[Rfam]
RNA: RT-1 RNA
RNA sequence: AGACUGUCAAGGUCAAGGUAGGCUUGGAAACUUGCCGCCAACCAAGACAGGGCUAUCCACAGGAAAUGUAUGAUGAUUAUUGUCAUAUUUUCAUCCUUGAUAGUUAU
Numbered sequence: 001a002g003a004c005u006g007u008c009a010a011g012g013u014c015a016a017g018g019u020a021g022g023c024u025u026g027g028a029a030a031c032u033u034g035c036c037g038c039c040a041a042c043c044a045a046g047a048c049a050g051g052g053c054u055a056u057c058c059a060c061a062g063g064a065a066a067u068g069u070a071u072g073a074u075g076a077u078u079a080u081u082g083u084c085a086u087a088u089u090u091u092c093a094u095c096c097u098u099g100a101u102a103g104u105u106a107u
Base pairs, nucleotide, nucleotide: 004050005049006048007047008046011043012042013041017039018038019037021036022035023034026031051105052104053103054102055101056100057099061097062096063095064094068088069087070086071085072084073083074082075081